[Rfam]
RNA: Eukaryotic large subunit ribosomal RNA, nucleotides 1642 to 2078
Organism: Plasmodiophora brassicae
RNA sequence: GGUAGUAGCAAAUAUUCAAAUGAGAACUUUGAAGACUGAAGUAGAGAAAGGUUCCAUGUGAACAGCAAUUGGACAUGGGUUAGUCGAUCCUAAGAGAUAGGGGAACUCCGUAUCAACGUGCGCGAUUUAUCGCGCCGCCUAUCGAAAGGGAAUCAGGUUAAUAUUCCUGAACCAGGACGUGGAUAUUGUAUGGCAACAUAAGUGAACUCGGAGACGUCGGCAGUGAGCCCGGGAAGAGUUAUCUUUUCUUUUUAACAGCUUUCGACCCUGGAAUCAGAUUAACUGGAGAUAGGGUUAACCAGCUGGGAAAGCACUUCAUGUCUGAAGUGUCCGGUGCCUUCCUGACGGCCCUUGAAAAUCCGAGGGAAAGAUUUAUUCGCACCCCUGGUCGUACUCAUAACCGCAUCAGGUCUCUAAGGUGAACAGCCUCUAGUCGA
Numbered sequence: 001g002g003u004a005g006u007a008g009c010a011a012a013u014a015u016u017c018a019a020a021u022g023a024g025a026a027c028u029u030u031g032a033a034g035a036c037u038g039a040a041g042u043a044g045a046g047a048a049a050g051g052u053u054c055c056a057u058g059u060g061a062a063c064a065g066c067a068a069u070u071g072g073a074c075a076u077g078g079g080u081u082a083g084u085c086g087a088u089c090c091u092a093a094g095a096g097a098u099a100g101g102g103g104a105a106c107u108c109c110g111u112a113u114c115a116a117c118g119u120g121c122g123c124g125a126u127u128u129a130u131c132g133c134g135c136c137g138c139c140u141a142u143c144g145a146a147a148g149g150g151a152a153u154c155a156g157g158u159u160a161a162u163a164u165u166c167c168u169g170a171a172c173c174a175g176g177a178c179g180u181g182g183a184u185a186u187u188g189u190a191u192g193g194c195a196a197c198a199u200a201a202g203u204g205a206a207c208u209c210g211g212a213g214a215c216g217u218c219g220g221c222a223g224u225g226a227g228c229c230c231g232g233g234a235a236g237a238g239u240u241a242u243c244u245u246u247u248c249u250u251u252u253u254a255a256c257a258g259c260u261u262u263c264g265a266c267c268c269u270g271g272a273a274u275c276a277g278a279u280u281a282a283c284u285g286g287a288g289a290u291a292g293g294g295u296u297a298a299c300c301a302g303c304u305g306g307g308a309a310a311g312c313a314c315u316u317c318a319u320g321u322c323u324g325a326a327g328u329g330u331c332c333g334g335u336g337c338c339u340u341c342c343u344g345a346c347g348g349c350c351c352u353u354g355a356a357a358a359u360c361c362g363a364g365g366g367a368a369a370g371a372u373u374u375a376u377u378c379g380c381a382c383c384c385c386u387g388g389u390c391g392u393a394c395u396c397a398u399a400a401c402c403g404c405a406u407c408a409g410g411u412c413u414c415u416a417a418g419g420u421g422a423a424c425a426g427c428c429u430c431u432a433g434u435c436g437a
Stems, first nucleotide, its partner, number of pairs: 015033006034435004043415004049395002054078006063071002085391003089149002094143002097111002100109003120133003153170005173387004179382003183377001189200004207364006216349004221344003225340003229334003232252006256305005265295006274286004312329007401410002417429004